[Rfam]
RNA sequence: UAACUCUGGUUUCUCCUUAUUUGCGGAUAAAUCUUUCCCCUUUUACUAAAGAUUUCCGUGGAGAGGCACAAUACAAUGAGUUUUGCCUCUUUUUUCUGCUCUGUCUUCGGACGAAG
Numbered sequence: 001u002a003a004c005u006c007u008g009g010u011u012u013c014u015c016c017u018u019a020u021u022u023g024c025g026g027a028u029a030a031a032u033c034u035u036u037c038c039c040c041u042u043u044u045a046c047u048a049a050a051g052a053u054u055u056c057c058g059u060g061g062a063g064a065g066g067c068a069c070a071a072u073a074c075a076a077u078g079a080g081u082u083u084u085g086c087c088u089c090u091u092u093u094u095u096c097u098g099c100u101c102u103g104u105c106u107u108c109g110g111a112c113g114a115a116g
Base pairs, nucleotide, nucleotide: 003081004080005079006078009069010068012066013065014064015063017061018060019059029055030054031053032052033051034050035049036048100115102113103112104111